This 103-nucleotide sequence from Emcibacter nanhaiensis belongs to the Rfam family "rpsB sRNA". For this family Rfam cites "Identification of candidate structured RNAs in the marine organism 'Candidatus Pelagibacter ubique'" (Meyer et al., BMC Genomics, 2009). The family's RNA type in Rfam is small RNA. The family's consensus secondary structure is taken from published work. NCBI's taxonomy places the organism under Bacteria, Pseudomonadati, Pseudomonadota, Emcibacteraceae, Emcibacter.
[Rfam]
RNA sequence: CACACACGGGUGUAGAAGUUUGCCUCCUACAUAUUGAGGCCGACUUUCCGGUGUCUCUAGAGACCAAAGCCCGUGGAGGAUUAACCGGAAAAGGAGAAAAGAC
Number, nucleotide and partner (000 for none) at each position: 001c078002a000003c076004a000005c075006a074007c073008g072009g071010g070011u000012g000013u000014a045015g044016a000017a000018g000019u000020u000021u000022g000023c000024c000025u000026c000027c038028u037029a000030c036031a000032u000033a000034u000035u000036g030037a028038g027039g000040c000041c000042g000043a000044c015045u014046u000047u000048c000049c000050g000051g000052u000053g064054u063055c062056u061057c000058u000059a000060g000061a056062g055063a054064c053065c000066a000067a000068a000069g000070c010071c009072c008073g007074u006075g005076g003077a000078g001079g000080a000081u000082u000083a000084a000085c000086c000087g000088g000089a000090a000091a000092a000093g000094g000095a000096g000097a000098a000099a000100a000101g000102a000103c000